[Rfam]
RNA sequence: GGUUUAUGAUGACACAGGACCUUGUCUGAACAUGGUGAUUUCAAAUUUUGAGCAUAAAAGGAUACCCUGAAAUC
Numbered sequence: 001g002g003u004u005u006a007u008g009a010u011g012a013c014a015c016a017g018g019a020c021c022u023u024g025u026c027u028g029a030a031c032a033u034g035g036u037g038a039u040u041u042c043a044a045a046u047u048u049u050g051a052g053c054a055u056a057a058a059a060g061g062a063u064a065c066c067c068u069g070a071a072a073u074c
Stems, first nucleotide, its partner, number of pairs: 001074004
The record is a 74-nucleotide RNA from Catagonus wagneri, which matches "Small nucleolar RNA SNORD107" in Rfam. The family has 13 seed sequences and 144 matches in Rfam 15.1. A search with the family's covariance model found it, with a score of 90 bits. Its family is annotated with RNA processing and nucleolus in the Gene Ontology. The base pairs follow the family's consensus structure, which was predicted with WAR.